[Rfam]
RNA sequence: CAGCUGAAGGCAAAGAAGAGAAUUUGAAUCUGCCUUUCUGCACAGAGUUUUUUGAUUCUUUCUUCAGCUU
Numbered sequence: 001c002a003g004c005u006g007a008a009g010g011c012a013a014a015g016a017a018g019a020g021a022a023u024u025u026g027a028a029u030c031u032g033c034c035u036u037u038c039u040g041c042a043c044a045g046a047g048u049u050u051u052u053u054g055a056u057u058c059u060u061u062c063u064u065c066a067g068c069u070u
Stems, first nucleotide, its partner, number of pairs: 002069009
Small nucleolar RNA SNORD69: a 70-nucleotide RNA sequence from Halcyon senegalensis. Pairs were carried over by alignment from the consensus structure. Rfam classes the family as a C/D-box small nucleolar RNA. Its family is annotated with nucleolus and RNA processing in the Gene Ontology. A reference for the family is Huttenhofer et al. (2001), "RNomics: an experimental approach that identifies 201 candidates for novel, small, non-messenger RNAs in mouse", EMBO J. Lineage of the source: Eukaryota > Opisthokonta > Aves > Neognathae > Halcyon.